[Rfam]
RNA sequence: AAGAUGACCUUAACAGAGGCACUCACUUGGUCUGUGCAUAGAGUAAGUGCUAACUGUUGGGGUAUUCUAU
Numbered sequence: 001a002a003g004a005u006g007a008c009c010u011u012a013a014c015a016g017a018g019g020c021a022c023u024c025a026c027u028u029g030g031u032c033u034g035u036g037c038a039u040a041g042a043g044u045a046a047g048u049g050c051u052a053a054c055u056g057u058u059g060g061g062g063u064a065u066u067c068u069a070u
Stems, first nucleotide, its partner, number of pairs: 004066001007063005013057004018051006025044003

miR-430 microRNA precursor family: a 70-nucleotide RNA sequence from Xiphophorus maculatus.
The literature on the family includes a 2005 paper in Science by Giraldez et al., "MicroRNAs regulate brain morphogenesis in zebrafish".
The match comes from Rfam's covariance-model search (61 bits).
Rfam links the family to the GO terms miRNA-mediated post-transcriptional gene silencing and RISC complex.